RNA sequence: CCAACAUGGAUACCCUAGAAGGAUGCUUUCCCAGGCUCUGUGCAGGUGGUGGUAGGGAAUCCCUUUCCACAGUGUUGGAGAUAAAGCCCGGCCUCUGAGUCUGUGCGUGCAUAUUCCUACAACUUCUCAGAGUCACAUGGACUGUGACUGAGGAGCCAAACCAUGCAGGAGAUAGUU
Numbered sequence: 001c002c003a004a005c006a007u008g009g010a011u012a013c014c015c016u017a018g019a020a021g022g023a024u025g026c027u028u029u030c031c032c033a034g035g036c037u038c039u040g041u042g043c044a045g046g047u048g049g050u051g052g053u054a055g056g057g058a059a060u061c062c063c064u065u066u067c068c069a070c071a072g073u074g075u076u077g078g079a080g081a082u083a084a085a086g087c088c089c090g091g092c093c094u095c096u097g098a099g100u101c102u103g104u105g106c107g108u109g110c111a112u113a114u115u116c117c118u119a120c121a122a123c124u125u126c127u128c129a130g131a132g133u134c135a136c137a138u139g140g141a142c143u144g145u146g147a148c149u150g151a152g153g154a155g156c157c158a159a160a161c162c163a164u165g166c167a168g169g170a171g172a173u174a175g176u177u
Stems, first nucleotide, its partner, number of pairs: 001078007008043001010041003014035003018029004046070004055063003106169001108167005123155006132142003
RNA: Small nucleolar RNA SNORA73 family
Organism: Erinaceus europaeus